RNA sequence: CGAAAGGCUCUUUUAAGAGCCACUACAUGCACAUUUAAAAGAGCUGU
Numbered sequence: 001c002g003a004a005a006g007g008c009u010c011u012u013u014u015a016a017g018a019g020c021c022a023c024u025a026c027a028u029g030c031a032c033a034u035u036u037a038a039a040a041g042a043g044c045u046g047u
Base pairs, nucleotide, nucleotide: 006021007020008019009018010017011016